[Rfam]
Nucleotides: 080
Base pairs, nucleotide, nucleotide: 004061005060006059007058008057009056010055012053013052014051015050016049017048018047022039023038024037025036026035027034028033
Number, partner (000 for none) and nucleotide at each position: 001000g002000u003000g004061u005060g006059g007058u008057g009056u010055u011000c012053a013052g014051c015050a016049c017048c018047a019000g020000c021000g022039a023038c024037a025036g026035g027034u028033a029000u030000g031000u032000a033028u034027a035026u036025c037024u038023g039022u040000g041000u042000g043000u044000g045000g046000a047018u048017g049016g050015u051014g052013u053012u054000c055010a056009g057008c058007a059006c060005c061004a062000a063000g064000g065000a066000c067000a068000g069000a070000u071000g072000u073000g074000u075000g076000u077000a078000c079000c080000u